[Rfam]
RNA sequence: AUGUGCCGCAAUGGCUAUUUCAACGGCGAGGUGGUGCGCCUCGACGGUUCGAUCCGCAUGGCGCCGCGCUGACGCCACGAACCGGCUGCAGCCGAGCCGCCAGCCACGUCAUGUGGCUGGCGGCUUUUUCC
Numbered sequence: 001a002u003g004u005g006c007c008g009c010a011a012u013g014g015c016u017a018u019u020u021c022a023a024c025g026g027c028g029a030g031g032u033g034g035u036g037c038g039c040c041u042c043g044a045c046g047g048u049u050c051g052a053u054c055c056g057c058a059u060g061g062c063g064c065c066g067c068g069c070u071g072a073c074g075c076c077a078c079g080a081a082c083c084g085g086c087u088g089c090a091g092c093c094g095a096g097c098c099g100c101c102a103g104c105c106a107c108g109u110c111a112u113g114u115g116g117c118u119g120g121c122g123g124c125u126u127u128u129u130c131c
Base pairs, nucleotide, nucleotide: 003024004022005021031078032077033076034075035074037063038062039061040060045056046055047054083094084093085092086091095125096124097123098122099121100120101119102118103117104116105115106114
The family of this 131-nucleotide RNA from Solimonas terrae is "Burkholderia sRNA 2". It scores 41 bits against the family's covariance model. The base pairs follow the family's consensus structure, which was predicted with RNAfold. A reference for the family is Ghosh et al. (2017), "Identification of novel small RNAs in Burkholderia cenocepacia KC-01 expressed under iron limitation and oxidative stress conditions", Microbiology. From the family's description: Upregulated in response to iron ion depletion.